[Rfam]
RNA sequence: GCCGAGCUCAGCAGCGCGAGCUUGUAACUCAAGUGAGGGCAUCAACGUGGUUGGAGAUUGGCCUGGCUGGGUUGGUAGGGCCUGACGGGGUGAUUUAACUGGCUCGCCCGUUCCAAGUUGGGAGUUGAGCCCCGAGAUCCGGGCGAAGGCCUGGGUGUCUGGGUUCUUAGACUGGAGGGCACCGCGUGAGGCUGGCUUCACAGAGCAGCGUUCACCUCCCGCUCUCUUCGGUGGAAGGAUAACGGGCCGGGACCCCUCAAGCCGAACAACGCCUACCCAGCCACUCUCAACCCGACAACCACAUUU
Numbered sequence: 001g002c003c004g005a006g007c008u009c010a011g012c013a014g015c016g017c018g019a020g021c022u023u024g025u026a027a028c029u030c031a032a033g034u035g036a037g038g039g040c041a042u043c044a045a046c047g048u049g050g051u052u053g054g055a056g057a058u059u060g061g062c063c064u065g066g067c068u069g070g071g072u073u074g075g076u077a078g079g080g081c082c083u084g085a086c087g088g089g090g091u092g093a094u095u096u097a098a099c100u101g102g103c104u105c106g107c108c109c110g111u112u113c114c115a116a117g118u119u120g121g122g123a124g125u126u127g128a129g130c131c132c133c134g135a136g137a138u139c140c141g142g143g144c145g146a147a148g149g150c151c152u153g154g155g156u157g158u159c160u161g162g163g164u165u166c167u168u169a170g171a172c173u174g175g176a177g178g179g180c181a182c183c184g185c186g187u188g189a190g191g192c193u194g195g196c197u198u199c200a201c202a203g204a205g206c207a208g209c210g211u212u213c214a215c216c217u218c219c220c221g222c223u224c225u226c227u228u229c230g231g232u233g234g235a236a237g238g239a240u241a242a243c244g245g246g247c248c249g250g251g252a253c254c255c256c257u258c259a260a261g262c263c264g265a266a267c268a269a270c271g272c273c274u275a276c277c278c279a280g281c282c283a284c285u286c287u288c289a290a291c292c293c294g295a296c297a298a299c300c301a302c303a304u305u306u
Stems, first nucleotide, its partner, number of pairs: 001040003004023006028037003044305002047302007056293001058290003061286001064283003068279005074273003079263003083259003087256001089255002094251001099250008108238002111236005117229001120226006127166006134159002137156008174219005184211004192203003